[Rfam]
RNA: U5 spliceosomal RNA
RNA sequence: UUUGCGUACUGCGUCAUCAAAAAGUGGUGUAUAGAGCCACCUUAAAUCUUUCGCCUUUUACUAAAGAUUUCCGUGGAGAGGAACAUCUAAUGAGUCUAUAGACUUAUUUUUCCAACCCUGAUUUCAUUCAGGGU
Numbered sequence: 001u002u003u004g005c006g007u008a009c010u011g012c013g014u015c016a017u018c019a020a021a022a023a024g025u026g027g028u029g030u031a032u033a034g035a036g037c038c039a040c041c042u043u044a045a046a047u048c049u050u051u052c053g054c055c056u057u058u059u060a061c062u063a064a065a066g067a068u069u070u071c072c073g074u075g076g077a078g079a080g081g082a083a084c085a086u087c088u089a090a091u092g093a094g095u096c097u098a099u100a101g102a103c104u105u106a107u108u109u110u111u112c113c114a115a116c117c118c119u120g121a122u123u124u125c126a127u128u129c130a131g132g133g134u
Base pairs, nucleotide, nucleotide: 001093002092006084007083009081010080012078014076015075016074044070045069046068047067048066049065050064051063114134116133117132118131119130120129121128